[Rfam]
RNA: R1162-like plasmid antisense RNA
RNA sequence: CGGCGCGGCAGGGUGCGGGAACACCCGGCAGCGCCUAACCAUAACCGUUCUACACAGGAGAACAGCAUGGCUUU
Numbered sequence: 001c002g003g004c005g006c007g008g009c010a011g012g013g014u015g016c017g018g019g020a021a022c023a024c025c026c027g028g029c030a031g032c033g034c035c036u037a038a039c040c041a042u043a044a045c046c047g048u049u050c051u052a053c054a055c056a057g058g059a060g061a062a063c064a065g066c067a068u069g070g071c072u073u074u
Stems, first nucleotide, its partner, number of pairs: 002035005008029002011026004039070003047063005053057001
Dot-bracket structure: .(((((.((.((((........)))).)).)))))...(((.....(((((.(...).)))))....)))....